[Rfam]
RNA sequence: AGAACUAAGUGGAGUAGUGGUCUCUUCAGUAAAUGAGGUUAACUGAGAUUCAACUCCUCCAACUUAUUGCU
Numbered sequence: 001a002g003a004a005c006u007a008a009g010u011g012g013a014g015u016a017g018u019g020g021u022c023u024c025u026u027c028a029g030u031a032a033a034u035g036a037g038g039u040u041a042a043c044u045g046a047g048a049u050u051c052a053a054c055u056c057c058u059c060c061a062a063c064u065u066a067u068u069g070c071u
Stems, first nucleotide, its partner, number of pairs: 007065003010061005017055001018053001023048002026046005
RNA: mir-1175 microRNA precursor family